Rfam assigns this 228-nucleotide part of an RNA from Allobosea sp. Root381 to the family "Bacterial large subunit ribosomal RNA". The organism belongs to Allobosea, within Bacteria. The base pairs follow the family's consensus structure, which is taken from published work.

RNA sequence: GACUUAAUCUGACGAGCAAGCUUAAGCCGAUAGGCGUAGGCGCAGCGAAAGCGAGUCUGAACAGGGCGUUCAGUUCGUCGGAUUAGACCCGAAACCGGGUGAUCUAGCCAUGAGCAGGUUGAAGGUAAGGUAACACUUACUGGAGGACCGAACCGGUGCCUGUUGAAAAAGUCUCGGAUGACUUGUGGCUAGGGGUGAAAGGCCAAUCAAACUCGGAAAUAGCUGGUU
Number, nucleotide and partner (000 for none) at each position: 001g000002a000003c000004u000005u085006a084007a083008u082009c081010u080011g079012a078013c077014g076015a075016g074017c073018a000019a000020g041021c040022u039023u038024a000025a000026g035027c034028c033029g000030a000031u000032a000033g028034g027035c026036g000037u000038a023039g022040g021041c020042g000043c000044a000045g052046c051047g000048a000049a000050a000051g046052c045053g000054a000055g067056u066057c065058u064059g000060a000061a000062c000063a000064g058065g057066g056067c055068g000069u000070u000071c000072a000073g017074u016075u015076c014077g013078u012079c011080g010081g009082a008083u007084u006085a005086g000087a000088c226089c225090c000091g223092a000093a000094a000095c216096c215097g214098g213099g212100u211101g000102a000103u000104c192105u191106a190107g189108c188109c187110a186111u185112g184113a183114g182115c180116a000117g149118g148119u147120u146121g000122a000123a000124g141125g140126u139127a138128a137129g136130g000131u000132a000133a000134c000135a000136c129137u128138u127139a126140c125141u124142g000143g000144a000145g000146g120147a119148c118149c117150g000151a000152a000153c177154c176155g175156g000157u000158g173159c000160c171161u170162g000163u000164u000165g000166a000167a000168a000169a000170a161171g160172u000173c158174u000175c155176g154177g153178a000179u000180g115181a000182c114183u113184u112185g111186u110187g109188g108189c107190u106191a105192g104193g000194g204195g203196u202197g000198a000199a000200a000201g000202g196203c195204c194205a000206a000207u000208c000209a000210a000211a100212c099213u098214c097215g096216g095217a000218a000219a000220u000221a000222g000223c091224u000225g089226g088227u000228u000